[Rfam]
RNA sequence: CGGCUUGCGGCGGGACGGUGAAGCGCCUAUAUUAGCCGGGUCGGACUUCGGUCCGUCUAUGGCGAUAAAUGGCGUCGUGAAAUAGACGCAGCGGACCCGGGGGCAGUACCCGGCGACUCCACCAUAAACCUUUGUUGUCGAAGGGAUGCGGGGUCGAACCAGGAUCGACGUGUGUUCAAAGACGAGAGCUUUUGCCCGGCAUGAAUAAGCCGUUAAAUGUUUCAAAAACCCUAAAUGCCAACGACAACGAGGCAUUCGCAAUCGCAGCGUAACAUGAAGUCCUCACGGACUUAGUUACACUGGCCGAAAGCGCGGUACGGGCUGCACCGGGCAACAGAAGCAGAAACC
Number, nucleotide and partner (000 for none) at each position: 001c000002g000003g000004c000005u000006u000007g000008c000009g000010g000011c000012g000013g000014g000015a000016c000017g000018g000019u000020g000021a000022a000023g000024c000025g000026c000027c000028u000029a000030u000031a000032u000033u000034a000035g000036c000037c000038g000039g000040g057041u000042c055043g054044g053045a052046c051047u000048u000049c000050g000051g046052u045053c044054c043055g042056u000057c040058u000059a000060u000061g196062g195063c194064g193065a192066u000067a000068a000069a000070u000071g000072g189073c188074g000075u185076c184077g183078u182079g000080a000081a000082a000083u000084a000085g000086a000087c174088g173089c172090a000091g171092c170093g169094g000095a000096c000097c113098c112099g111100g110101g109102g000103g000104c000105a000106g000107u000108a000109c101110c100111c099112g098113g097114c156115g155116a154117c153118u152119c151120c150121a000122c000123c000124a000125u000126a000127a000128a000129c000130c000131u000132u000133u000134g000135u000136u000137g000138u000139c000140g000141a000142a000143g000144g000145g000146a000147u000148g000149c000150g120151g119152g118153g117154u116155c115156g114157a000158a000159c000160c000161a000162g000163g000164a000165u000166c000167g000168a000169c093170g092171u091172g089173u088174g087175u000176u000177c000178a000179a000180a000181g000182a078183c077184g076185a075186g000187a000188g073189c072190u000191u000192u065193u064194g063195c062196c061197c212198g211199g210200c209201a000202u224203g223204a222205a000206u000207a000208a218209g200210c199211c198212g197213u000214u000215a000216a000217a000218u208219g000220u000221u000222u204223c203224a202225a000226a000227a000228a000229c000230c000231c000232u000233a000234a000235a000236u000237g000238c000239c000240a000241a000242c000243g000244a000245c000246a000247a000248c000249g000250a000251g000252g000253c000254a000255u000256u000257c000258g000259c000260a000261a000262u000263c000264g000265c000266a000267g000268c000269g000270u000271a000272a000273c000274a000275u000276g000277a000278a000279g000280u000281c000282c000283u000284c000285a000286c000287g000288g000289a000290c000291u000292u000293a000294g000295u000296u000297a000298c000299a000300c000301u000302g000303g000304c000305c000306g000307a000308a000309a000310g000311c000312g000313c329314g328315g327316u326317a000318c000319g000320g000321g000322c000323u000324g000325c000326a316327c315328c314329g313330g000331g000332c000333a000334a000335c000336a000337g000338a000339a000340g000341c000342a000343g000344a000345a000346a000347c000348c000
The record is a 348-nucleotide RNA sequence from Sandarakinorhabdus sp., which matches "Alphaproteobacteria transfer-messenger RNA" in Rfam. About the family: Bacterial tmRNA, also known as 10Sa RNA or SsrA, is named for its dual tRNA and mRNA-like properties. Its role is to liberate the mRNA from a stalled ribosome. The match comes from Rfam's covariance-model search (220 bits).